[Rfam]
RNA sequence: UUGCACAAUGCACAUCCCCGGGCUUCUCUGAAUGAGUAAUCAAUCGAUGACGAUGAAAGCCCCAUUGCUCUUGCCAAAACAAGCCGAUGCCAAGUGUUGCAGUUCAGCCAUUCUCGUUAUCCACAGCUGAGCUGUGUCAAAUCGAUGCCCACAUCU
Number, nucleotide and partner (000 for none) at each position: 001u000002u000003g074004c073005a072006c000007a000008a069009u000010g068011c067012a000013c000014a000015u000016c000017c000018c000019c000020g062021g061022g060023c059024u058025u056026c055027u053028c052029u000030g000031a000032a000033u000034g000035a000036g000037u000038a000039a000040u000041c000042a000043a000044u000045c000046g000047a000048u000049g000050a000051c000052g028053a027054u000055g026056a025057a000058a024059g023060c022061c021062c020063c000064a000065u000066u000067g011068c010069u008070c000071u000072u005073g004074c003075c000076a000077a000078a000079a000080c000081a000082a000083g000084c000085c000086g149087a000088u147089g146090c000091c144092a000093a000094g000095u139096g138097u000098u136099g135100c134101a133102g132103u131104u000105c000106a000107g127108c126109c000110a000111u000112u000113c000114u000115c000116g000117u000118u000119a000120u000121c000122c000123a000124c000125a000126g108127c107128u000129g000130a000131g103132c102133u101134g100135u099136g098137u000138c096139a095140a000141a000142u000143c000144g091145a000146u089147g088148c000149c086150c000151a000152c000153a000154u000155c000156u000
This 156-nucleotide RNA from Juglans regia belongs to the Rfam family "small nucleolar RNA snoR134". The family has 5 seed sequences and 792 matches in Rfam 15.1. The base pairs follow the family's consensus structure, which was predicted with RNAalifold. The source organism's lineage runs through Eukaryota, Streptophyta, Euphyllophyta, Gunneridae and Juglans. For this family Rfam cites "Mining small RNA sequencing data: a new approach to identify small nucleolar RNAs in Arabidopsis" (Chen and Wu, Nucleic Acids Res, 2009). It scores 63 bits against the family's covariance model.